[Rfam]
RNA sequence: CACGGCCAGUUUGAGUUGAUUCGCUCUUUCGCAAUAGAGCUUUGAGUCAAAUUACUGUCCGGAAAUUAUAGAGAUGAAGCUCAUUUGGAGCAAUAACAAUUGUUGAAGCUCCGAAAAUGAUGCUCUUCCCACAAUU
Number, nucleotide and partner (000 for none) at each position: 001c000002a000003c061004g060005g059006c000007c057008a056009g055010u054011u000012u000013g000014a000015g000016u050017u049018g048019a047020u046021u045022c044023g040024c039025u038026c037027u036028u000029u000030c000031g000032c000033a000034a000035u000036a027037g026038a025039g024040c023041u000042u000043u000044g022045a021046g020047u019048c018049a017050a016051a000052u000053u000054a010055c009056u008057g007058u000059c005060c004061g003062g000063a000064a000065a000066u000067u000068a000069u000070a000071g000072a000073g128074a127075u000076g126077a000078a124079g123080c122081u000082c000083a000084u000085u000086u000087g000088g000089a000090g000091c000092a000093a000094u000095a000096a000097c000098a000099a000100u000101u000102g000103u000104u000105g000106a000107a000108g000109c000110u000111c000112c000113g000114a000115a000116a000117a000118u000119g000120a000121u000122g080123c079124u078125c000126u076127u074128c073129c000130c000131a000132c000133a000134a000135u000136u000

Rfam assigns this 136-nucleotide RNA from Caenorhabditis elegans to the family "Caenorhabditis snoRNA ceN59". Rfam links the family to the GO terms nucleolus and RNA processing. The family's RNA type in Rfam is H/ACA-box small nucleolar RNA. Rfam's curators put it in the seed alignment. The literature on the family includes a 2007 paper in BMC Mol Biol by Jia et al., "Systematic identification of non-coding RNA 2,2,7-trimethylguanosine cap structures in Caenorhabditis elegans".